About this RNA: Rfam assigns this 92-nucleotide RNA from Otolemur garnettii to the family "Small nucleolar RNA SNORD116". The literature on the family includes a 2000 paper in Proc Natl Acad Sci U S A by Cavaille et al., "Identification of brain-specific and imprinted small nucleolar RNA genes exhibiting an unusual genomic organization".
[Rfam]
RNA sequence: GGAUGGAUGAUGAUUUCCAGAUAUGCAUUCCUUGGAAAGCUAAGCAAAAUGAUUGACAACUCUAUACACUUAUCCUCAUUGAACUGAGGUCC
Numbered sequence: 001g002g003a004u005g006g007a008u009g010a011u012g013a014u015u016u017c018c019a020g021a022u023a024u025g026c027a028u029u030c031c032u033u034g035g036a037a038a039g040c041u042a043a044g045c046a047a048a049a050u051g052a053u054u055g056a057c058a059a060c061u062c063u064a065u066a067c068a069c070u071u072a073u074c075c076u077c078a079u080u081g082a083a084c085u086g087a088g089g090u091c092c
Stems, first nucleotide, its partner, number of pairs: 001092004026055002029052002032047003
The match comes from Rfam's covariance-model search (88 bits). Its family is annotated with RNA processing and nucleolus in the Gene Ontology. The family's consensus secondary structure was predicted with PFOLD.